[Rfam]
RNA sequence: UAUACCCCGUUGGAUAAGGGUUAAGCCAACUGGUGCGGACAUCUGCAAAGGUUUCUUGUUUUUCCUUACGUCUAAAAGAACAAGUGGCGAGCCUGCAA
Dot-bracket structure: ........(((((.(........).)))))...............[..[[[...((((((...]]]...]........))))))..............
Numbered sequence: 001u002a003u004a005c006c007c008c009g010u011u012g013g014a015u016a017a018g019g020g021u022u023a024a025g026c027c028a029a030c031u032g033g034u035g036c037g038g039a040c041a042u043c044u045g046c047a048a049a050g051g052u053u054u055c056u057u058g059u060u061u062u063u064c065c066u067u068a069c070g071u072c073u074a075a076a077a078g079a080a081c082a083a084g085u086g087g088c089g090a091g092c093c094u095g096c097a098a
Stems, first nucleotide, its partner, number of pairs: 009030005015024001046070001049066003055084006
Annotation
The record is a 98-nucleotide sequence, which matches "wcaG RNA" in Rfam. By type it is a cis-regulatory element. It is one of the family's seed sequences. The base pairs follow the family's consensus structure, which is taken from published work.